[Rfam]
RNA sequence: ACAUACAGAAGAGGUGCGGUGUCUAGGUAUAUUCAGUGAAGGCGUAAUUCCUUAUGAACUGAGUAGAGGGAGAGCAUUGCCGAGACUGAACUUGGGUUACGCCAAGCUACGUCGGCCACUGGGGCUGAAUCCUCAGGGCUGUCACCAUUAGGGAUUAGGUGGAGAGCUUCUGGAAAA
Numbered sequence: 001a002c003a004u005a006c007a008g009a010a011g012a013g014g015u016g017c018g019g020u021g022u023c024u025a026g027g028u029a030u031a032u033u034c035a036g037u038g039a040a041g042g043c044g045u046a047a048u049u050c051c052u053u054a055u056g057a058a059c060u061g062a063g064u065a066g067a068g069g070g071a072g073a074g075c076a077u078u079g080c081c082g083a084g085a086c087u088g089a090a091c092u093u094g095g096g097u098u099a100c101g102c103c104a105a106g107c108u109a110c111g112u113c114g115g116c117c118a119c120u121g122g123g124g125c126u127g128a129a130u131c132c133u134c135a136g137g138g139c140u141g142u143c144a145c146c147a148u149u150a151g152g153g154a155u156u157a158g159g160u161g162g163a164g165a166g167c168u169u170c171u172g173g174a175a176a177a
Stems, first nucleotide, its partner, number of pairs: 006172006016080006022073003030065008084113003089108001091106005114140004119136006142162005
Overview:
The family of this 177-nucleotide RNA sequence from Ferrimonas lipolytica is "Lysine riboswitch aptamer". About the family: Riboswitches are metabolite binding domains within certain messenger RNAs that serve as precision sensors for their corresponding targets. Allosteric rearrangement of mRNA structure is mediated by ligand binding, and this results in modulation of gene expression.